[Rfam]
RNA sequence: UAUCGCUGCCCUCCUUGGGCGUUUCCUCCCUAGACUUGGGCCGCUUGCCAUCGCAAGCGGCCCUUUUUUCUUUUCGGA
Numbered sequence: 001u002a003u004c005g006c007u008g009c010c011c012u013c014c015u016u017g018g019g020c021g022u023u024u025c026c027u028c029c030c031u032a033g034a035c036u037u038g039g040g041c042c043g044c045u046u047g048c049c050a051u052c053g054c055a056a057g058c059g060g061c062c063c064u065u066u067u068u069u070c071u072u073u074u075c076g077g078a
Base pairs, nucleotide, nucleotide: 008020009019010018011017038063039062040061041060042059043058044057045056046055
A member of the RNA family "Makes More Granules Regulator RNA (mmgR)" from Rhodopseudomonas palustris, 78 nucleotides long. The family has 87 seed sequences and 1,791 matches in Rfam 15.1. The pairing is the family consensus, mapped onto this sequence. Its Rfam clan is "suhB sRNA clan". Taxonomically the source falls in Rhodopseudomonas palustris (Bacteria, Alphaproteobacteria, Hyphomicrobiales, Rhodopseudomonas).